RNA: MIR2617 microRNA precursor family
Organism: Medicago truncatula
RNA sequence: AAGUAUUGUGACAUGCCCGUUGGGUUGUACUCUGAUGUUGUGUGUUUAUUUAUUAUUAAUUUACUUUUGGGUAACGGGGUGUUACAAUUUU
Numbered sequence: 001a002a003g004u005a006u007u008g009u010g011a012c013a014u015g016c017c018c019g020u021u022g023g024g025u026u027g028u029a030c031u032c033u034g035a036u037g038u039u040g041u042g043u044g045u046u047u048a049u050u051u052a053u054u055a056u057u058a059a060u061u062u063a064c065u066u067u068u069g070g071g072u073a074a075c076g077g078g079g080u081g082u083u084a085c086a087a088u089u090u091u
Stems, first nucleotide, its partner, number of pairs: 002091002005088010016078006